[Rfam]
RNA sequence: AGUUGCAAAUUUGAGGCCACAGCAGAAGUGUUCACAGCGUAGCCUGUCCGAUUCCAACAAAUCUGUGAAUUUUGCU
Numbered sequence: 001a002g003u004u005g006c007a008a009a010u011u012u013g014a015g016g017c018c019a020c021a022g023c024a025g026a027a028g029u030g031u032u033c034a035c036a037g038c039g040u041a042g043c044c045u046g047u048c049c050g051a052u053u054c055c056a057a058c059a060a061a062u063c064u065g066u067g068a069a070u071u072u073u074g075c076u
Stems, first nucleotide, its partner, number of pairs: 015044003021076007028040003048065001050063004
Mammalian CPEB3 ribozyme: a 76-nucleotide RNA from Alligator mississippiensis. The family's consensus secondary structure is taken from published work. Rfam links the family to the GO term RNA nuclease activity. Rfam describes the family as follows. The mammalian CPEB3 ribozyme is a self cleaving RNA located in the second intron of the CPEB3 gene which belongs to a family of genes regulating messenger RNA polyadenylation.